Source information: This 136-nucleotide sequence from Candidatus Thiodiazotropha endoloripes belongs to the Rfam family "Guanidine-I riboswitch aptamer". About the family: This family represents a conserved RNA structure found upstream of the ykkC and yxkD genes in Bacillus subtilis and related genes in other bacteria. The function of this family is unclear although it has been suggested that it may function to switch on efflux pumps and detoxification systems in response to harmful environmental molecules. Rfam 15.1 lists 1,509 matches to the family in 1,281 species. The literature on the family includes a 2021 paper in RNA by Trachman RJ 3rd and Ferre-D'Amare, "An uncommon [K(+)(Mg(2+))2] metal ion triad imparts stability and selectivity to the Guanidine-I riboswitch".
RNA sequence: GAAAUAGAAAGCUAGGGUUCCGAUCCGGCUCAAUACCAGACAAGGUGGUGAGCUGCGAUGACUGGUCCAAGAGCGUUCGACCUCUCCCUCUCAGUGCAGGGUAUGGGUUACACGGCGGGAUAAAAGCCCGGGAGAC
Numbered sequence: 001g002a003a004a005u006a007g008a009a010a011g012c013u014a015g016g017g018u019u020c021c022g023a024u025c026c027g028g029c030u031c032a033a034u035a036c037c038a039g040a041c042a043a044g045g046u047g048g049u050g051a052g053c054u055g056c057g058a059u060g061a062c063u064g065g066u067c068c069a070a071g072a073g074c075g076u077u078c079g080a081c082c083u084c085u086c087c088c089u090c091u092c093a094g095u096g097c098a099g100g101g102u103a104u105g106g107g108u109u110a111c112a113c114g115g116c117g118g119g120a121u122a123a124a125a126g127c128c129c130g131g132g133a134g135a136c
Stems, first nucleotide, its partner, number of pairs: 007078003011074002015068002020065002022062001023059003079109005085103001111131001113134001117129003